[Rfam]
RNA: Small nucleolar RNA snoR99
RNA sequence: GUGCCUGCGGGAUGAACAGGUUCCUGACAUGUACAACCAUUUAUUCACUUUCUCAGCUGAUAUUUUGUUUUCAGCUGAUCAUUAAGGAUGGGAAAUUU
Numbered sequence: 001g002u003g004c005c006u007g008c009g010g011g012a013u014g015a016a017c018a019g020g021u022u023c024c025u026g027a028c029a030u031g032u033a034c035a036a037c038c039a040u041u042u043a044u045u046c047a048c049u050u051u052c053u054c055a056g057c058u059g060a061u062a063u064u065u066u067g068u069u070u071u072c073a074g075c076u077g078a079u080c081a082u083u084a085a086g087g088a089u090g091g092g093a094a095a096u097u098u
Stems, first nucleotide, its partner, number of pairs: 037091005053078007